Annotation
Bacterial RNase P class B: a 327-nucleotide sequence from Firmicutes bacterium CAG:884.

RNA sequence: AAUAACAGACAAACGCUGCAUUCUUUGUAAUGUAGAGGAAAGUCCAUCCUCGCACUAUCUGUGAUGAUAGUAGUGUUUAUGUAAGGGGAAUAAAUAACCCUUAGUAGCAUUAAGCUAACGGCGGCUAAAACCUUAAACGGUAUAUGCCAUAAAGUGCCACAGAAACGAGUAUUUGGGAAACCAAAUAAUGAAACGCGGUAAACCCCAUAAGCGAGAAACCCAAAUUAUGGUAGGGGAACCUUGAUGUCGGAAUUAAGAACGAAUAAAGGAUCGAAAGAUAGAUAAAUGUUUGUCACCUUUAAUAAGGUACAGAAUAUGGCUUAUGUU
Numbered sequence: 001a002a003u004a005a006c007a008g009a010c011a012a013a014c015g016c017u018g019c020a021u022u023c024u025u026u027g028u029a030a031u032g033u034a035g036a037g038g039a040a041a042g043u044c045c046a047u048c049c050u051c052g053c054a055c056u057a058u059c060u061g062u063g064a065u066g067a068u069a070g071u072a073g074u075g076u077u078u079a080u081g082u083a084a085g086g087g088g089a090a091u092a093a094a095u096a097a098c099c100c101u102u103a104g105u106a107g108c109a110u111u112a113a114g115c116u117a118a119c120g121g122c123g124g125c126u127a128a129a130a131c132c133u134u135a136a137a138c139g140g141u142a143u144a145u146g147c148c149a150u151a152a153a154g155u156g157c158c159a160c161a162g163a164a165a166c167g168a169g170u171a172u173u174u175g176g177g178a179a180a181c182c183a184a185a186u187a188a189u190g191a192a193a194c195g196c197g198g199u200a201a202a203c204c205c206c207a208u209a210a211g212c213g214a215g216a217a218a219c220c221c222a223a224a225u226u227a228u229g230g231u232a233g234g235g236g237a238a239c240c241u242u243g244a245u246g247u248c249g250g251a252a253u254u255a256a257g258a259a260c261g262a263a264u265a266a267a268g269g270a271u272c273g274a275a276a277g278a279u280a281g282a283u284a285a286a287u288g289u290u291u292g293u294c295a296c297c298u299u300u301a302a303u304a305a306g307g308u309a310c311a312g313a314a315u316a317u318g319g320c321u322u323a324u325g326u327u
Stems, first nucleotide, its partner, number of pairs: 004327004008294007016035006040322003044319004049215005054071006077210005082103006104119001105117004120205002123148003131139001154203002156199003170187007219235003239269004244264002270279003296307004
From the family's description: Ribonuclease P (RNase P) is a ubiquitous endoribonuclease, found in archaea, bacteria and eukarya as well as chloroplasts and mitochondria. Its best characterised activity is the generation of mature 5'-ends of tRNAs by cleaving the 5'-leader elements of precursor-tRNAs. Cellular RNase Ps are ribonucleoproteins. RNA from bacterial RNase Ps retains its catalytic activity in the absence of the protein subunit, i.e. it is a ribozyme. Isolated eukaryotic and archaeal RNase P RNA has not been shown to retain its catalytic function, but is still essential for the catalytic activity of the holoenzyme. Although the archaeal and eukaryotic holoenzyme s have a much greater protein content than the bacterial ones, the RNA cores from all the three lineages are homologous -- helices corresponding to P1, P2, P3, P4, and P10/11 are common to all cellular RNase P RNAs. Yet, there is considerable sequence variation, particularly among the eukaryotic RNAs. Pairs were carried over by alignment from the consensus structure, which is taken from published work. For this family Rfam cites "The Ribonuclease P Database" (Brown, Nucleic Acids Res, 1999). The organism belongs to Bacillota, within Bacteria. Its family is annotated with tRNA processing, dimeric ribonuclease P complex and ribonuclease P activity in the Gene Ontology.